About this RNA: The family of this 129-nucleotide sequence from Cricetulus griseus is "Small nucleolar RNA SNORA61". It is annotated as an H/ACA-box small nucleolar RNA. Rfam's curators write: ACA61 is a member of the H/ACA class of snoRNA that guide the sites of modification of uridines to pseudouridines. A search with the family's covariance model found it, with a score of 107 bits. The family's consensus secondary structure was predicted with PFOLD.
[Rfam]
RNA sequence: ACCCUCCGGUUCCCUUUCCCAUCAGAUAUUGAUGCUGGUCUUGGUGGUCGUAAAGGAGGGAAAGCGCACUGAAACUGGACUCAUAGCAAUGUAGUGUGGUAUAGAGCAUUGGGUCAGAUUCAUACAUGC
Dot-bracket structure: ..(((((...........(((((.(((..........)))..))))).......)))))...............((((.((........(((.............)))..)).))))............